[Rfam]
RNA sequence: UAUAAAGGAACGCAGACUAAAAACGCCACAUCCUGCGGCAGCGUCUGCAUGACCCGAAUCCUGUGGG
Numbered sequence: 001u002a003u004a005a006a007g008g009a010a011c012g013c014a015g016a017c018u019a020a021a022a023a024c025g026c027c028a029c030a031u032c033c034u035g036c037g038g039c040a041g042c043g044u045c046u047g048c049a050u051g052a053c054c055c056g057a058a059u060c061c062u063g064u065g066g067g
Base pairs, nucleotide, nucleotide: 012048013047014046015045016044017043025039026038027037029035053067054066055065056064
The record is a 67-nucleotide RNA sequence from Bacillus sp. NRRL B-14911, which matches "Bacillaceae-1 RNA" in Rfam. Pairs were carried over by alignment from the consensus structure, which is taken from published work. It is one of the family's seed sequences.